[Rfam]
Nucleotides: 088
Stems, first nucleotide, its partner, number of pairs: 003088004009082001013077001017075001019073003023069004027063003030058006039051001041050003
Number, partner (000 for none) and nucleotide at each position: 001000c002000g003088g004087g005086g006085g007000a008000g009082g010000c011000c012000a013077g014000a015000u016000c017075c018000u019073g020072g021071g022000c023069u024068g025067u026066g027063u028062c029061c030058c031057g032056g033055c034054g035053c036000c037000c038000u039051g040000u041050g042049c043048u044000c045000c046000g047000g048043g049042g050041c051039c052000u053035g054034c055033g056032c057031u058030g059000u060000u061029g062028g063027a064000u065000u066026c067025g068024c069023g070000c071021u072020c073019c074000c075017g076000c077013c078000c079000c080000c081000u082009c083000c084000c085006c086005c087004c088003u